Background: This 62-nucleotide sequence from Candidatus Symbiopectobacterium sp. PLON1 belongs to the Rfam family "Fluoride riboswitch aptamer (crcB RNA motif)". It scores 58 bits against the family's covariance model. Lineage of the source: Bacteria > Enterobacterales > Enterobacteriaceae > ant, tsetse, mealybug, aphid, etc. endosymbionts > Symbiopectobacterium.
RNA sequence: UUGUCACAUGGAGAUGGCAUUCCUCCCUAACCGCCCUUUGGGCUGAUGAUGCCUACGUAUGC
Numbered sequence: 001u002u003g004u005c006a007c008a009u010g011g012a013g014a015u016g017g018c019a020u021u022c023c024u025c026c027c028u029a030a031c032c033g034c035c036c037u038u039u040g041g042g043c044u045g046a047u048g049a050u051g052c053c054u055a056c057g058u059a060u061g062c
Base pairs, nucleotide, nucleotide: 010026011025012024013023016053017052018051019050020049021048033043034042035041